[Rfam]
RNA sequence: UGAUGAGGUAGAGGUCGCGACUUUUAAGAGUACUUCAUUCGAGGUGCAGAGACACCAAUGACACUGAGGGAAAGGAAAAGCCGCCGAAGUCUGCAUGUUUCUCUGAACCUGCAGGCUGGGGCCGUCUCCGAACAGGGACGGAACUGUCACGUCAUUCCUUUUCCAGGGGAUACGUGGUGCGCUAUCUUUAUG
Numbered sequence: 001u002g003a004u005g006a007g008g009u010a011g012a013g014g015u016c017g018c019g020a021c022u023u024u025u026a027a028g029a030g031u032a033c034u035u036c037a038u039u040c041g042a043g044g045u046g047c048a049g050a051g052a053c054a055c056c057a058a059u060g061a062c063a064c065u066g067a068g069g070g071a072a073a074g075g076a077a078a079a080g081c082c083g084c085c086g087a088a089g090u091c092u093g094c095a096u097g098u099u100u101c102u103c104u105g106a107a108c109c110u111g112c113a114g115g116c117u118g119g120g121g122c123c124g125u126c127u128c129c130g131a132a133c134a135g136g137g138a139c140g141g142a143a144c145u146g147u148c149a150c151g152u153c154a155u156u157c158c159u160u161u162u163c164c165a166g167g168g169g170a171u172a173c174g175u176g177g178u179g180c181g182c183u184a185u186c187u188u189u190a191u192g
Base pairs, nucleotide, nucleotide: 006187007186008185009184010183011182017084018083019082021080022079023078024077025076033069034068035067036066037065039063088117089116090115091114092113093112094111095110097108098107099106118145119144122141123140124139125138126137127136128135147177148176149175150174151173152172

Lysine riboswitch aptamer: a 192-nucleotide sequence from Thermoactinomyces mirandus. It scores 126 bits against the family's covariance model. Riboswitches are metabolite binding domains within certain messenger RNAs that serve as precision sensors for their corresponding targets. Taxonomically the source falls in Thermoactinomyces (Bacteria, Bacillati, Bacilli, Caryophanales).